[Rfam]
RNA sequence: UAGGGGAGCCUAACAGGGGGCCACGGGAAACUGGGGAAACUCCAGCCUCUCGCCCAGGGGGAGUCCCGCGAGGGACGGGGUUAGGUGCUCCGACAACUGCACAGAAACGAGACCUGCGGUGGGCCAGAUGAAAAUGAUCAUUUACCCCAUCUGGCGACGGAUGGGAGGGUGUGAGAGACCUAUCGUGGGUUGAAACGGCAGAUCUCCCCUUGAGCAAGUAGGGGAGGAUAGGGCAAAAUGACUCCCCUGAUACGCAGAGCCUAAUCCCCCAAGUACAGAAGCUGGGUUAUUGUUAGGCUCCCC
Numbered sequence: 001u002a003g004g005g006g007a008g009c010c011u012a013a014c015a016g017g018g019g020g021c022c023a024c025g026g027g028a029a030a031c032u033g034g035g036g037a038a039a040c041u042c043c044a045g046c047c048u049c050u051c052g053c054c055c056a057g058g059g060g061g062a063g064u065c066c067c068g069c070g071a072g073g074g075a076c077g078g079g080g081u082u083a084g085g086u087g088c089u090c091c092g093a094c095a096a097c098u099g100c101a102c103a104g105a106a107a108c109g110a111g112a113c114c115u116g117c118g119g120u121g122g123g124c125c126a127g128a129u130g131a132a133a134a135u136g137a138u139c140a141u142u143u144a145c146c147c148c149a150u151c152u153g154g155c156g157a158c159g160g161a162u163g164g165g166a167g168g169g170u171g172u173g174a175g176a177g178a179c180c181u182a183u184c185g186u187g188g189g190u191u192g193a194a195a196c197g198g199c200a201g202a203u204c205u206c207c208c209c210u211u212g213a214g215c216a217a218g219u220a221g222g223g224g225a226g227g228a229u230a231g232g233g234c235a236a237a238a239u240g241a242c243u244c245c246c247c248u249g250a251u252a253c254g255c256a257g258a259g260c261c262u263a264a265u266c267c268c269c270c271a272a273g274u275a276c277a278g279a280a281g282c283u284g285g286g287u288u289a290u291u292g293u294u295a296g297g298c299u300c301c302c303c
Stems, first nucleotide, its partner, number of pairs: 004302003008298007016270005024033003038288003042285005047214003058209005063076005077091005092204002097201004113189011139171005218253002222246005
Shown here is a 303-nucleotide RNA sequence from Metallosphaera sedula, a member of the family "Archaeal RNase P". For this family Rfam cites "The Ribonuclease P Database" (Brown, Nucleic Acids Res, 1999).